[Rfam]
RNA: mir-660 microRNA precursor family
Organism: Crocuta crocuta
RNA sequence: UCCUUCUCCUAUACCCAUUGCAUAUCAGAGUUGUGAUUCUCGAAGCACCUCCCAUGUGCAUGGAUUACAAGAGGG
Numbered sequence: 001u002c003c004u005u006c007u008c009c010u011a012u013a014c015c016c017a018u019u020g021c022a023u024a025u026c027a028g029a030g031u032u033g034u035g036a037u038u039c040u041c042g043a044a045g046c047a048c049c050u051c052c053c054a055u056g057u058g059c060a061u062g063g064a065u066u067a068c069a070a071g072a073g074g075g
Stems, first nucleotide, its partner, number of pairs: 002074004007069001015063004020059006028051003032047003